[Rfam]
RNA sequence: UUGCACAUUAUUCAAGGUUUUUCUUUUUUUUAAAGUUGAAUCUCUUCAUUGUGCGAUAUAAACAAUGUCCUUUAUUCCCGUUCUGGAAUUUUAUUUCUUGCGCGAUGAUCUGGCCAUGACAAAA
Numbered sequence: 001u002u003g004c005a006c007a008u009u010a011u012u013c014a015a016g017g018u019u020u021u022u023c024u025u026u027u028u029u030u031u032a033a034a035g036u037u038g039a040a041u042c043u044c045u046u047c048a049u050u051g052u053g054c055g056a057u058a059u060a061a062a063c064a065a066u067g068u069c070c071u072u073u074a075u076u077c078c079c080g081u082u083c084u085g086g087a088a089u090u091u092u093a094u095u096u097c098u099u100g101c102g103c104g105a106u107g108a109u110c111u112g113g114c115c116a117u118g119a120c121a122a123a124a
Base pairs, nucleotide, nucleotide: 003054004053005052014046015045016044017043023035024034025033026032065117066116067115069113070112074109075108076107079104080103081102083100086097087096088095
Caenorhabditis snoRNA ceN86: a 124-nucleotide RNA sequence from Caenorhabditis japonica. A reference for the family is Jia et al. (2007), "Systematic identification of non-coding RNA 2,2,7-trimethylguanosine cap structures in Caenorhabditis elegans", BMC Mol Biol. The match comes from Rfam's covariance-model search (72 bits). The pairing is the family consensus, mapped onto this sequence. Rfam 15.1 lists 9 matches to the family in 8 species. By type it is a C/D-box small nucleolar RNA.